Rfam assigns this 86-nucleotide sequence from Medicago truncatula to the family "MIR2617 microRNA precursor family". The organism belongs to Medicago, within Eukaryota. The family's consensus secondary structure was predicted with RNAalifold.
RNA sequence: AUGUAGUGUGACAUGCCCGUUGGGUAUUAACUCUGAUGUUAUACUAUUAUUUAAUUGCUUUGGGAUAACAGGGUGUUACAUGUUUG
Numbered sequence: 001a002u003g004u005a006g007u008g009u010g011a012c013a014u015g016c017c018c019g020u021u022g023g024g025u026a027u028u029a030a031c032u033c034u035g036a037u038g039u040u041a042u043a044c045u046a047u048u049a050u051u052u053a054a055u056u057g058c059u060u061u062g063g064g065a066u067a068a069c070a071g072g073g074u075g076u077u078a079c080a081u082g083u084u085u086g
Stems, first nucleotide, its partner, number of pairs: 002086002005083001006081009016072002019069003